RNA sequence: GGUCACGAGUGCCAGCGCUAAACCCCGGUUUGCUGGCCGGCAACCCUCCAGACGCGGUGGGGUGCCCCGGGUGACGACCAGGCCGGCCACAGAAAGUGGUGCGGCAAGCGCGGUGC
Number, nucleotide and partner (000 for none) at each position: 001g079002g078003u077004c076005a000006c000007g000008a000009g038010u000011g037012c036013c035014a034015g033016c032017g000018c000019u000020a000021a030022a029023c000024c000025c000026c000027g000028g000029u022030u021031u000032g016033c015034u014035g013036g012037c011038c009039g066040g065041c064042a000043a000044c062045c061046c060047u000048c057049c056050a000051g000052a000053c000054g000055c000056g049057g048058u000059g000060g046061g045062g044063u000064g041065c040066c039067c000068c000069g000070g000071g000072u000073g000074a000075c000076g004077a003078c002079c001080a000081g000082g105083c104084c103085g102086g100087c099088c098089a097090c096091a000092g000093a000094a000095a000096g090097u089098g088099g087100u086101g000102c085103g084104g083105c082106a000107a000108g000109c000110g000111c000112g000113g000114u000115g000116c000

Shown here is a 116-nucleotide RNA from Arthrobacter woluwensis, a member of the family "SAM (S-adenosyl methionine) riboswitch aptamer".
Rfam's curators write: SAM-IV is a mRNA element that regulates gene expression via direct sensing of S-adenosylmethionine (SAM or AdoMet). SAM-IV riboswitches share conserved nucleotide positions with the previously described SAM-I riboswitches sequence analysis and molecular recognition experiments suggest that SAM-I and SAM-IV riboswitches share similar ligand binding sites, but have different scaffolds.
The family's consensus secondary structure is taken from published work.